skipping-rope RNA: a 77-nucleotide RNA from Clostridium tagluense.
It scores 48 bits against the family's covariance model.
The base pairs follow the family's consensus structure, which is taken from published work.

RNA sequence: AAUAUCUGAGGGCGGAACAGGUAGCCGCCACCCCACAGAAAUGUGGUAGGAGAUGUAGAUUACCACCUACCUAUAUU
Numbered sequence: 001a002a003u004a005u006c007u008g009a010g011g012g013c014g015g016a017a018c019a020g021g022u023a024g025c026c027g028c029c030a031c032c033c034c035a036c037a038g039a040a041a042u043g044u045g046g047u048a049g050g051a052g053a054u055g056u057a058g059a060u061u062a063c064c065a066c067c068u069a070c071c072u073a074u075a076u077u
Stems, first nucleotide, its partner, number of pairs: 001077005008071001011029005020064004031050001034045003055070004